[Rfam]
RNA sequence: CGUGCCAAGGAGCGUUGCGACGGACUCAUUCUGCCAGGCUUGGUAUCGUAGCAAUAUGCAACCGCGCUUACGUUUU
Numbered sequence: 001c002g003u004g005c006c007a008a009g010g011a012g013c014g015u016u017g018c019g020a021c022g023g024a025c026u027c028a029u030u031c032u033g034c035c036a037g038g039c040u041u042g043g044u045a046u047c048g049u050a051g052c053a054a055u056a057u058g059c060a061a062c063c064g065c066g067c068u069u070a071c072g073u074u075u076u
Stems, first nucleotide, its partner, number of pairs: 002046007021033004
Dot-bracket structure: .(((((((............((((.....))))......)))))))..............................
The record is a 76-nucleotide RNA from Glaciimonas sp., which matches "SAH (S-adenosyl-L-homocysteine) riboswitch aptamer" in Rfam.
On this family, see Wang et al., Mol Cell 2008: "Riboswitches that sense S-adenosylhomocysteine and activate genes involved in coenzyme recycling".
Gene Ontology terms of the family: S-adenosylhomocysteine metabolic process and regulation of gene expression.
The family has 52 seed sequences and 1,354 matches in Rfam 15.1.